[Rfam]
Source information:
The record is a 426-nucleotide part of an RNA from Cryptosporidium parvum, which matches "Eukaryotic large subunit ribosomal RNA" in Rfam.
RNA sequence: AGACCUGAUAUUAAGUAAGAUUACCCACUGAACUUAAGCAUAUUAUUAAGUGGAGGAAAAGAAACUAACUAGGAUUUCCUUAGUAACUGCGAGUGAACAGGAAAAAGCUCAACAUGAAAAUCAAUAAUAAUUUUAUUUUAUUAUUGACUUGUAGUAUCUAGAAGUAAUGCCAGUGAAUUAAUAAAAUUAAGUGUUUUGGAAUAAACCACCAUAGAGGGUGAAAGUCCCGUCUAUAUUUUAUUUUAAUUCACAUACGGUUUACUAUCAAAGAGUCAUAUUCCUUGGGAAUGGAGUAUAAAAUGGGUGGUAAUUUUCAUCCAAAGCUAAAUAUUGAUGAGAAACCGAUAGCAAACAAGUACCGUGAGGGAAAGAUGAAAAGAACUUUGAAAAGAGAGUUAAAAGUACCUGAAAUUACUUAAAGGGAAG
Numbered sequence: 001a002g003a004c005c006u007g008a009u010a011u012u013a014a015g016u017a018a019g020a021u022u023a024c025c026c027a028c029u030g031a032a033c034u035u036a037a038g039c040a041u042a043u044u045a046u047u048a049a050g051u052g053g054a055g056g057a058a059a060a061g062a063a064a065c066u067a068a069c070u071a072g073g074a075u076u077u078c079c080u081u082a083g084u085a086a087c088u089g090c091g092a093g094u095g096a097a098c099a100g101g102a103a104a105a106a107g108c109u110c111a112a113c114a115u116g117a118a119a120a121u122c123a124a125u126a127a128u129a130a131u132u133u134u135a136u137u138u139u140a141u142u143a144u145u146g147a148c149u150u151g152u153a154g155u156a157u158c159u160a161g162a163a164g165u166a167a168u169g170c171c172a173g174u175g176a177a178u179u180a181a182u183a184a185a186a187u188u189a190a191g192u193g194u195u196u197u198g199g200a201a202u203a204a205a206c207c208a209c210c211a212u213a214g215a216g217g218g219u220g221a222a223a224g225u226c227c228c229g230u231c232u233a234u235a236u237u238u239u240a241u242u243u244u245a246a247u248u249c250a251c252a253u254a255c256g257g258u259u260u261a262c263u264a265u266c267a268a269a270g271a272g273u274c275a276u277a278u279u280c281c282u283u284g285g286g287a288a289u290g291g292a293g294u295a296u297a298a299a300a301u302g303g304g305u306g307g308u309a310a311u312u313u314u315c316a317u318c319c320a321a322a323g324c325u326a327a328a329u330a331u332u333g334a335u336g337a338g339a340a341a342c343c344g345a346u347a348g349c350a351a352a353c354a355a356g357u358a359c360c361g362u363g364a365g366g367g368a369a370a371g372a373u374g375a376a377a378a379g380a381a382c383u384u385u386g387a388a389a390a391g392a393g394a395g396u397u398a399a400a401a402g403u404a405c406c407u408g409a410a411a412u413u414a415c416u417u418a419a420a421g422g423g424a425a426g
Stems, first nucleotide, its partner, number of pairs: 024055001025053005035042002065072002076103005086094002106325004115153002118150002121147010161266002163263004169258003173251007181241007191207001193206004210214001217227002275296007302319005359366002382393004

Annotation: Gene Ontology terms of the family: ribosome and structural constituent of ribosome. Clan: LSU clan.